[Rfam]
RNA sequence: GUAAAGGCCCUUUUCAGGGCCACCCACAAUUUAAUUUAAAUUUUGU
Numbered sequence: 001g002u003a004a005a006g007g008c009c010c011u012u013u014u015c016a017g018g019g020c021c022a023c024c025c026a027c028a029a030u031u032u033a034a035u036u037u038a039a040a041u042u043u044u045g046u
Stems, first nucleotide, its partner, number of pairs: 006021006
Rfam assigns this 46-nucleotide RNA sequence from Schistosoma mansoni to the family "Histone 3' UTR stem-loop".
The base pairs follow the family's consensus structure, which is taken from published work.
The family's RNA type in Rfam is cis-regulatory element.
A search with the family's covariance model found it, with a score of 42 bits.
Rfam describes the family as follows. The mRNAs of metazoan histone genes lack a poly-A tail. 3' end processing occurs at a site between a highly conserved stem-loop (modelled by this family) and a purine rich region around 20 nts downstream (the histone downstream element, or HDE).
The organism belongs to Schistosoma, within Eukaryota.